[Rfam]
RNA sequence: AUACUUACCUGGACGGGGUCAACGGGCGAUCAGGAAGGCUCGUGGCCUAGGCCAAUGGCCCACAUUGCACUUGGUGGGCGCGUUGGCUUACCAUCUCCCCAAGUGGGAGAGUGGACGUCAUAAUUUGUGGUAGAGGGGGUACGCGUUCGCGCGGCCCCUA
Numbered sequence: 001a002u003a004c005u006u007a008c009c010u011g012g013a014c015g016g017g018g019u020c021a022a023c024g025g026g027c028g029a030u031c032a033g034g035a036a037g038g039c040u041c042g043u044g045g046c047c048u049a050g051g052c053c054a055a056u057g058g059c060c061c062a063c064a065u066u067g068c069a070c071u072u073g074g075u076g077g078g079c080g081c082g083u084u085g086g087c088u089u090a091c092c093a094u095c096u097c098c099c100c101a102a103g104u105g106g107g108a109g110a111g112u113g114g115a116c117g118u119c120a121u122a123a124u125u126u127g128u129g130g131u132a133g134a135g136g137g138g139g140u141a142c143g144c145g146u147u148c149g150c151g152c153g154g155c156c157c158c159u160a
Stems, first nucleotide, its partner, number of pairs: 012119004016048006023042005049089003053086001055083003060078002062075002091114003094110003098106002135159005142153004

This 160-nucleotide RNA sequence from Oryza barthii belongs to the Rfam family "U1 spliceosomal RNA".
It is annotated as a spliceosomal small nuclear RNA.
Pairs were carried over by alignment from the consensus structure, which is taken from published work.
About the family: U1 is a small nuclear RNA (snRNA) component of the spliceosome (involved in pre-mRNA splicing).
NCBI's taxonomy places the organism under Eukaryota, Tracheophyta, Spermatophyta, commelinids, Oryza.
Its Rfam clan is "U1 clan".
Gene Ontology terms of the family: U1 snRNP, pre-mRNA 5'-splice site binding and mRNA 5'-splice site recognition.